The family of this 130-nucleotide RNA from Tumebacillus algifaecis is "Glycine riboswitch aptamer".
[Rfam]
RNA sequence: UGAUCGUCGGUGGGAGAGAGCACAAUGUUCGUUUUUUCGGAAUCGAACCUCCUGUGACGCCGAAGGAGCAAGCAGCAUCCCGCCCAAGGGUGUGUGCGAAUCUCUCAGGCAAACGUACCGCCGCGGGACG
Numbered sequence: 001u002g003a004u005c006g007u008c009g010g011u012g013g014g015a016g017a018g019a020g021c022a023c024a025a026u027g028u029u030c031g032u033u034u035u036u037u038c039g040g041a042a043u044c045g046a047a048c049c050u051c052c053u054g055u056g057a058c059g060c061c062g063a064a065g066g067a068g069c070a071a072g073c074a075g076c077a078u079c080c081c082g083c084c085c086a087a088g089g090g091u092g093u094g095u096g097c098g099a100a101u102c103u104c105u106c107a108g109g110c111a112a113a114c115g116u117a118c119c120g121c122c123g124c125g126g127g128a129c130g
Stems, first nucleotide, its partner, number of pairs: 008123006021056003059110003062106002066104003072097002